[Rfam]
RNA sequence: GGUCAUGGUACCCGUGGCUAUAGACUGUUACUGCACUAUAUAGUUGUCAGGUAACAGUCUACAGCCAUGGUUGCUAUGGCAAC
Numbered sequence: 001g002g003u004c005a006u007g008g009u010a011c012c013c014g015u016g017g018c019u020a021u022a023g024a025c026u027g028u029u030a031c032u033g034c035a036c037u038a039u040a041u042a043g044u045u046g047u048c049a050g051g052u053a054a055c056a057g058u059c060u061a062c063a064g065c066c067a068u069g070g071u072u073g074c075u076a077u078g079g080c081a082a083c
Stems, first nucleotide, its partner, number of pairs: 012070002015067004023059010

Source information
This 83-nucleotide sequence from Eptatretus burgeri belongs to the Rfam family "mir-132 microRNA precursor family". A search with the family's covariance model found it, with a score of 69 bits. A reference for the family is Chen et al. (2005), "The developmental miRNA profiles of zebrafish as determined by small RNA cloning", Genes Dev. The source organism's lineage runs through Eukaryota, Metazoa, Deuterostomia, Cyclostomata and Eptatretus.